A member of the RNA family "Flavo-1 RNA" from Flavobacterium branchiophilum, 85 nucleotides long. By type it is a small RNA.
[Rfam]
RNA sequence: AUUUUGCGUUAGGGAUAGCAGUGGAAAUCCUUUUUUGAGGCUUUUUCUGCCUCAAAAAAGAUUGUAACGGAUAGCCCGACCCUUG
Dot-bracket structure: ...........(((.((...((...((((..((((((((((.......)))))))))).))))...))...)).)))........